Rfam assigns this 384-nucleotide sequence from Arthrobacter subterraneus to the family "Bacterial RNase P class A". Pairs were carried over by alignment from the consensus structure, which is taken from published work. Rfam classes the family as a ribozyme.

RNA sequence: UGGGUUGGCCAGGCGGUCGCGUGGAAAGACUUCGGUUCUUCCACGAGGAACGUCCGGGCUCCGCAGGGCAGGGUGGUGGGUAACGCCCACUCGGGGUAACCCGCAGGAAAGUGCCACAGAAAACAGACCGCCCCGAUGGCUUCGUCCAGACGGGGUAAGGGUGAAACGGUGGUGUAAGAGACCACCAGCGCACCGGGUAACCGGAGCGGCUAGGUAAACCCCACCCGGAGCAAGGCCAGACAGGACACGUUUGAGGACUGCCCGUCCGAGUGUCCGGGUAGGCCGCUGGAGGGCGCCGGUAACGGCGUUCGUAGAUAGAUGGCCGCCACUGCAGGUCCUCACCGAACUGCAGGACAGAACCCGGCGUAUCGGCCAACCCAUCCC
Numbered sequence: 001u002g003g004g005u006u007g008g009c010c011a012g013g014c015g016g017u018c019g020c021g022u023g024g025a026a027a028g029a030c031u032u033c034g035g036u037u038c039u040u041c042c043a044c045g046a047g048g049a050a051c052g053u054c055c056g057g058g059c060u061c062c063g064c065a066g067g068g069c070a071g072g073g074u075g076g077u078g079g080g081u082a083a084c085g086c087c088c089a090c091u092c093g094g095g096g097u098a099a100c101c102c103g104c105a106g107g108a109a110a111g112u113g114c115c116a117c118a119g120a121a122a123a124c125a126g127a128c129c130g131c132c133c134c135g136a137u138g139g140c141u142u143c144g145u146c147c148a149g150a151c152g153g154g155g156u157a158a159g160g161g162u163g164a165a166a167c168g169g170u171g172g173u174g175u176a177a178g179a180g181a182c183c184a185c186c187a188g189c190g191c192a193c194c195g196g197g198u199a200a201c202c203g204g205a206g207c208g209g210c211u212a213g214g215u216a217a218a219c220c221c222c223a224c225c226c227g228g229a230g231c232a233a234g235g236c237c238a239g240a241c242a243g244g245a246c247a248c249g250u251u252u253g254a255g256g257a258c259u260g261c262c263c264g265u266c267c268g269a270g271u272g273u274c275c276g277g278g279u280a281g282g283c284c285g286c287u288g289g290a291g292g293g294c295g296c297c298g299g300u301a302a303c304g305g306c307g308u309u310c311g312u313a314g315a316u317a318g319a320u321g322g323c324c325g326c327c328a329c330u331g332c333a334g335g336u337c338c339u340c341a342c343c344g345a346a347c348u349g350c351a352g353g354a355c356a357g358a359a360c361c362c363g364g365c366g367u368a369u370c371g372g373c374c375a376a377c378c379c380a381u382c383c384c
Stems, first nucleotide, its partner, number of pairs: 001380010011369001012327007020045007028037001050367003054364005059230004066263004071226005076090005091105001092103004106221002111219002113215003128160002130156006137149001168186006188210001189208003193204004234284004243275006255267004291310008